This 85-nucleotide sequence from Populus trichocarpa belongs to the Rfam family "small nucleolar RNA snoR114". The organism belongs to Populus, within Eukaryota. It is annotated as a C/D-box small nucleolar RNA.
RNA sequence: GAGCAAUGAUGAAAGCUGUGCCGUAGCGAUGGUAGGGUCUAUCGCAAGCAUCUGAUCACCAGAUGAUAUUGGCUCUGCUGAGCUC
Numbered sequence: 001g002a003g004c005a006a007u008g009a010u011g012a013a014a015g016c017u018g019u020g021c022c023g024u025a026g027c028g029a030u031g032g033u034a035g036g037g038u039c040u041a042u043c044g045c046a047a048g049c050a051u052c053u054g055a056u057c058a059c060c061a062g063a064u065g066a067u068a069u070u071g072g073c074u075c076u077g078c079u080g081a082g083c084u085c
Base pairs, nucleotide, nucleotide: 001085002084003083004082